[Rfam]
Rfam assigns this 57-nucleotide RNA from Aureimonas jatrophae to the family "nhaA-I RNA". Taxonomically the source falls in Aureimonas (Bacteria, Pseudomonadati, Pseudomonadota, Aurantimonadaceae). It is annotated as a riboswitch. A search with the family's covariance model found it, with a score of 56 bits. Pairs were carried over by alignment from the consensus structure, which is taken from published work. Acidobacteria, Alphaproteobacteria, Betaproteobacteria and Gammaproteobacteria, Verrucomicrobia, cand. division NC10.
RNA sequence: GGGUGCGGGUCCAUGGCGGGUUCGCAGGUUUUUCUCACGCUGGUCGGGCCGCCAGCG
Numbered sequence: 001g002g003g004u005g006c007g008g009g010u011c012c013a014u015g016g017c018g019g020g021u022u023c024g025c026a027g028g029u030u031u032u033u034c035u036c037a038c039g040c041u042g043g044u045c046g047g048g049c050c051g052c053c054a055g056c057g
Stems, first nucleotide, its partner, number of pairs: 005025008038057007